[Rfam]
RNA sequence: UUCUUACUCAAAGGGGAGUAGCGUUAGGGUUCGCCCUAAAACAAAGUCGUCAUCCCAUGGACAUCAGUCCAUCGGCUUUGUUGACAUGACUUCAUGUUC
Dot-bracket structure: ........................(((........))).((((((((((.......(((((......)))))))))))))))((((((....)))))).
The record is a 99-nucleotide RNA from Bacillus sp. V59.32b, which matches "Manganese Mn2+ riboswitch aptamer (yybP-ykoY)" in Rfam.
Rfam describes the family as follows. This RNA was originally discovered in E. coli during a large scale screen and was named SraF. The family was later found to exist upstream of related families of protein genes in many bacteria, including the the yybP and ykoK genes in B. subtilis. The specific functions of these proteins are unknown, but this structured RNA element may be involved in their genetic regulation as a riboswitch.
Pairs were carried over by alignment from the consensus structure.
The family has 29 seed sequences and 1,126 matches in Rfam 15.1.
Rfam links the family to the GO term manganese ion binding.